[Rfam]
RNA sequence: ACGGGCACUUGGCAGCUUGGGGAUGUACUACAGAGAAGUCCCCAGGCAGUACCCAAGGUCUGU
Numbered sequence: 001a002c003g004g005g006c007a008c009u010u011g012g013c014a015g016c017u018u019g020g021g022g023a024u025g026u027a028c029u030a031c032a033g034a035g036a037a038g039u040c041c042c043c044a045g046g047c048a049g050u051a052c053c054c055a056a057g058g059u060c061u062g063u
Stems, first nucleotide, its partner, number of pairs: 001063006009056001012053001015047010025031002